[Rfam]
RNA sequence: AGAGUCGAUCGGGUGAUCGCGGGGACACACUUCUUCGGAAAAGUGUUCUCGAGGAAAGUCCGAGCUCCAUAGAGCAGAGCGCUGGGUAACGCCCAGUCGGGGUGACCCGAAGGAAAGUGCCACAGAAAACACACCGCCAGGAAGGAGAUUAUCUACUCCAGGAAUAACUGGGAGCCACAGGGCUUUCUUUGAGGCCAUAGAGCCUGGAUAAAAAUCUUGGUAGAGAUAGGAUACUUCCUGGUAAGGGUGAAAAGGCGAGGUAAGAGCUCACCAGCAGCCUGGUGACAGUCUGGCUUGGCAAACCCCGCUCGGAGCAAGGCCAAAUAGGAGGACGAUAGGGUUGCUCGCUCUGUCCUCGGGUAGGCUGCUUGAGGUACAUGGUAACAUGUAUCCCAGAUGGAUGAUCACCACCCAGGGAUGUCUCAAAAGGACGUUCCAAGGGUACAGAACUCGGCUUAUAGAUCGACUCUCCUA
Numbered sequence: 001a002g003a004g005u006c007g008a009u010c011g012g013g014u015g016a017u018c019g020c021g022g023g024g025a026c027a028c029a030c031u032u033c034u035u036c037g038g039a040a041a042a043g044u045g046u047u048c049u050c051g052a053g054g055a056a057a058g059u060c061c062g063a064g065c066u067c068c069a070u071a072g073a074g075c076a077g078a079g080c081g082c083u084g085g086g087u088a089a090c091g092c093c094c095a096g097u098c099g100g101g102g103u104g105a106c107c108c109g110a111a112g113g114a115a116a117g118u119g120c121c122a123c124a125g126a127a128a129a130c131a132c133a134c135c136g137c138c139a140g141g142a143a144g145g146a147g148a149u150u151a152u153c154u155a156c157u158c159c160a161g162g163a164a165u166a167a168c169u170g171g172g173a174g175c176c177a178c179a180g181g182g183c184u185u186u187c188u189u190u191g192a193g194g195c196c197a198u199a200g201a202g203c204c205u206g207g208a209u210a211a212a213a214a215u216c217u218u219g220g221u222a223g224a225g226a227u228a229g230g231a232u233a234c235u236u237c238c239u240g241g242u243a244a245g246g247g248u249g250a251a252a253a254g255g256c257g258a259g260g261u262a263a264g265a266g267c268u269c270a271c272c273a274g275c276a277g278c279c280u281g282g283u284g285a286c287a288g289u290c291u292g293g294c295u296u297g298g299c300a301a302a303c304c305c306c307g308c309u310c311g312g313a314g315c316a317a318g319g320c321c322a323a324a325u326a327g328g329a330g331g332a333c334g335a336u337a338g339g340g341u342u343g344c345u346c347g348c349u350c351u352g353u354c355c356u357c358g359g360g361u362a363g364g365c366u367g368c369u370u371g372a373g374g375u376a377c378a379u380g381g382u383a384a385c386a387u388g389u390a391u392c393c394c395a396g397a398u399g400g401a402u403g404a405u406c407a408c409c410a411c412c413c414a415g416g417g418a419u420g421u422c423u424c425a426a427a428a429g430g431a432c433g434u435u436c437c438a439a440g441g442g443u444a445c446a447g448a449a450c451u452c453g454g455c456u457u458a459u460a461g462a463u464c465g466a467c468u469c470u471c472c473u474a
Stems, first nucleotide, its partner, number of pairs: 001470010011459001012409007020051009056457003060454005065314004072346004077310005082096005097111001098109004112305002117303002119299003134246002136242009254272002257269003274294001275292003279288003318366004328357006337351005373392008
About this RNA:
Shown here is a 474-nucleotide RNA from Candidatus Hakubella thermalkaliphila, a member of the family "Bacterial RNase P class A". Taxonomically the source falls in Candidatus Hakubella (Bacteria, Bacillati, Actinomycetota, Candidatus Hakubellaceae). The match comes from Rfam's covariance-model search (332 bits).